[Rfam]
RNA: mir-92 microRNA precursor family
RNA sequence: UGUCCUGGUCAGGUUGGGAGGGGUGGCAGUGCUGUAACUCUGAAGGUAUUGCACUUGUCCCGGCCUGUUUAGGACUG
Numbered sequence: 001u002g003u004c005c006u007g008g009u010c011a012g013g014u015u016g017g018g019a020g021g022g023g024u025g026g027c028a029g030u031g032c033u034g035u036a037a038c039u040c041u042g043a044a045g046g047u048a049u050u051g052c053a054c055u056u057g058u059c060c061c062g063g064c065c066u067g068u069u070u071a072g073g074a075c076u077g
Stems, first nucleotide, its partner, number of pairs: 004073003010067005016061004022055003026052008